[Rfam]
RNA sequence: UGUUGUCAUGGGCAAAACUGUCGAAAGGCAGUGACGCAAAGCCUCCGGUCUAACAGCGCAAGCUCAGGAUAGCGGGGUUGCAGGC
Numbered sequence: 001u002g003u004u005g006u007c008a009u010g011g012g013c014a015a016a017a018c019u020g021u022c023g024a025a026a027g028g029c030a031g032u033g034a035c036g037c038a039a040a041g042c043c044u045c046c047g048g049u050c051u052a053a054c055a056g057c058g059c060a061a062g063c064u065c066a067g068g069a070u071a072g073c074g075g076g077g078u079u080g081c082a083g084g085c
Stems, first nucleotide, its partner, number of pairs: 012037002017032006040079004045075003048070003055064003